[Rfam]
RNA sequence: GACUUACUGUAUACGGCAAGGUUAAGUUAUUAAACGGAGCCGAGCGAAGCGAGUACGAAUAGUGCGAUUUAGUCGUAUGCAGUAGACCCGAAACUGAGUGAUCUAUCCAUGAGCAGGUUGAAGCCCGAGUAACAUCGGGUGGAGGACCGAACCAUUGCGUGCUGAAAAACGCUUGGAUGACUUGUGGAUAGGGGUGAAAGGCCAAUCAAACUCAGUGAUAGCUGGUU
Numbered sequence: 001g002a003c004u005u006a007c008u009g010u011a012u013a014c015g016g017c018a019a020g021g022u023u024a025a026g027u028u029a030u031u032a033a034a035c036g037g038a039g040c041c042g043a044g045c046g047a048a049g050c051g052a053g054u055a056c057g058a059a060u061a062g063u064g065c066g067a068u069u070u071a072g073u074c075g076u077a078u079g080c081a082g083u084a085g086a087c088c089c090g091a092a093a094c095u096g097a098g099u100g101a102u103c104u105a106u107c108c109a110u111g112a113g114c115a116g117g118u119u120g121a122a123g124c125c126c127g128a129g130u131a132a133c134a135u136c137g138g139g140u141g142g143a144g145g146a147c148c149g150a151a152c153c154a155u156u157g158c159g160u161g162c163u164g165a166a167a168a169a170c171g172c173u174u175g176g177a178u179g180a181c182u183u184g185u186g187g188a189u190a191g192g193g194g195u196g197a198a199a200g201g202c203c204a205a206u207c208a209a210a211c212u213c214a215g216u217g218a219u220a221g222c223u224g225g226u227u
Base pairs, nucleotide, nucleotide: 005084006083007082008081009080010079011078012077013076014075015074016073017072020041021040022039023038026035027034028033044050045049053065054064055063056062087225088224090222094215095214096213097212098211099210103191104190105189106188107187108186109185110184111183112182113181114179116148117147118146119145123140124139125138126137127136128135152176153175154174157172158171159170160169193203194202195201
Background
Shown here is a 227-nucleotide part of an RNA from Lentisphaera araneosa, a member of the family "Bacterial large subunit ribosomal RNA".